[Rfam]
Nucleotides: 079
Base pairs, nucleotide, nucleotide: 014047015046016045017044020043023079024078025077026076027075028074029073030042031041051068052067053066054065055064056063
Number, partner (000 for none) and nucleotide at each position: 001000g002000u003000u004000g005000c006000a007000a008000g009000u010000u011000u012000g013000a014047g015046g016045a017044c018000a019000u020043c021000a022000c023079a024078g025077c026076a027075g028074a029073a030042g031041c032000a033000c034000u035000g036000a037000c038000a039000c040000c041031g042030u043020g044017g045016u046015c047014c048000u049000a050000u051068c052067a053066g054065a055064u056063u057000c058000c059000a060000a061000c062000a063056a064055a065054u066053c067052u068051g069000u070000g071000a072000a073029u074028u075027c076026u077025g078024c079023u
This 79-nucleotide RNA from Crocodylus porosus belongs to the Rfam family "Mammalian CPEB3 ribozyme".
Rfam links the family to the GO term RNA nuclease activity.
The family's consensus secondary structure is taken from published work.
Lineage of the source: Eukaryota > Metazoa > Chordata > Sauria > Crocodylus.